[Rfam]
The record is a 158-nucleotide RNA sequence from Devosia sp. LC5, which matches "6S / SsrS RNA" in Rfam. Lineage of the source: Bacteria > Pseudomonadota > Hyphomicrobiales > Devosiaceae > Devosia. Rfam describes the family as follows. E. coli 6S RNA was the first non coding RNA to be sequenced, but its function was unknown until recently. It consists of 184 nucleotides that fold into an extended hairpin structure with a large single-stranded internal bulge. The 6S RNA specifically associates with RNA polymerase holoenzyme containing the sigma70 specificity factor. This interaction represses expression from a sigma70-dependent promoter during stationary phase. 6S RNA homologs have recently been identified in most bacterial genomes. On this family, see Wassarman and Storz, Cell 2000: "6S RNA regulates E. coli RNA polymerase activity". Rfam classes the family as a non-coding RNA gene.

RNA sequence: GUGCUGCUGCCCGGUGCGUGAUGGAUAACAAUAUCCCCGGGGCCUUAUCGAUUCCUAAGGGAGCUGUCCCUGACCGGACCCGUGGGUUCGGACAUACGGCGCCCACCUACGUUGUAGGUUCCCGGGAUCGACUAUCCCACGGCCAGGGUGGCACCUAG
Numbered sequence: 001g002u003g004c005u006g007c008u009g010c011c012c013g014g015u016g017c018g019u020g021a022u023g024g025a026u027a028a029c030a031a032u033a034u035c036c037c038c039g040g041g042g043c044c045u046u047a048u049c050g051a052u053u054c055c056u057a058a059g060g061g062a063g064c065u066g067u068c069c070c071u072g073a074c075c076g077g078a079c080c081c082g083u084g085g086g087u088u089c090g091g092a093c094a095u096a097c098g099g100c101g102c103c104c105a106c107c108u109a110c111g112u113u114g115u116a117g118g119u120u121c122c123c124g125g126g127a128u129c130g131a132c133u134a135u136c137c138c139a140c141g142g143c144c145a146g147g148g149u150g151g152c153a154c155c156u157a158g
Stems, first nucleotide, its partner, number of pairs: 003155001005153007013144003017141003034127004039122006059104003063100005072093001074091007